[Rfam]
RNA sequence: UCAAGGUACCGCUGUACGCUGAGAUCCCGGUAUCAAUCGAUACCUCUAAAUCCCCGUAGCAGACCCUCGCUAUGUGAUUUAGAACCUCUUCUACACGUCGACAAGAUGAUUAUCUUGUAUUGCCAGCCCGUCUUCAGGCUGGCUUUUUUUUCU
Numbered sequence: 001u002c003a004a005g006g007u008a009c010c011g012c013u014g015u016a017c018g019c020u021g022a023g024a025u026c027c028c029g030g031u032a033u034c035a036a037u038c039g040a041u042a043c044c045u046c047u048a049a050a051u052c053c054c055c056g057u058a059g060c061a062g063a064c065c066c067u068c069g070c071u072a073u074g075u076g077a078u079u080u081a082g083a084a085c086c087u088c089u090u091c092u093a094c095a096c097g098u099c100g101a102c103a104a105g106a107u108g109a110u111u112a113u114c115u116u117g118u119a120u121u122g123c124c125a126g127c128c129c130g131u132c133u134u135c136a137g138g139c140u141g142g143c144u145u146u147u148u149u150u151u152c153u
Stems, first nucleotide, its partner, number of pairs: 005026003010021002029044006052076001055074006101118006122143007
Shown here is a 153-nucleotide RNA sequence from Vibrio navarrensis, a member of the family "Vibrio RNA VqmR". It is annotated as a small RNA. Repress the expression of multiple mRNAs including the rtx (repeats in toxin) toxin genes and the vpsT, which is required for biofilm formation. Taxonomically the source falls in Vibrio (Bacteria, Pseudomonadati, Gammaproteobacteria, Vibrionaceae). Its family is annotated with mRNA binding, negative regulation of single-species biofilm formation and sRNA-mediated gene silencing in the Gene Ontology.